Nucleotides: 155
Stems, first nucleotide, its partner, number of pairs: 002063007009055001013051002016048002020044003025036004083147005096136002102131002105128003
Number, partner (000 for none) and nucleotide at each position: 001000g002063g003062u004061u005060c006059g007058a008057u009055g010000c011000c012000a013051c014050g015000a016048c017047g018000c019000c020044g021043g022042u023000a024000u025036u026035c027034a028033g029000a030000a031000u032000a033028u034027u035026g036025g037000u038000u039000a040000u041000g042022a043021c044020c045000g046000u047017c048016g049000a050014u051013g052000u053000c054000a055009u056000g057008a058007u059006u060005g061004g062003a063002c064000c065000g066000a067000a068000a069000u070000c071000g072000a073000g074000u075000u076000u077000a078000u079000c080000a081000u082000u083147u084146c085145g086144c087143a088000u089000c090000u091000u092000a093000a094000u095000a096136g097135g098000a099000a100000u101000a102131u103130g104000u105128g106127g107126a108000c109000u110000g111000g112000u113000u114000a115000u116000u117000u118000u119000c120000c121000g122000u123000a124000c125000a126107u127106c128105c129000a130103u131102g132000g133000a134000u135097c136096u137000g138000u139000u140000u141000u142000g143087u144086g145085c146084g147083a148000u149000u150000a151000c152000a153000a154000u155000u
Small nucleolar RNA snoR2/U65: a 155-nucleotide RNA from Phtheirospermum japonicum. The literature on the family includes a 1998 paper in J Cell Sci by Shaw et al., "Localization and processing from a polycistronic precursor of novel snoRNAs in maize". Its Rfam clan is "SNORA65 clan". Taxonomically the source falls in Phtheirospermum (Eukaryota, Streptophytina, Magnoliopsida, lamiids).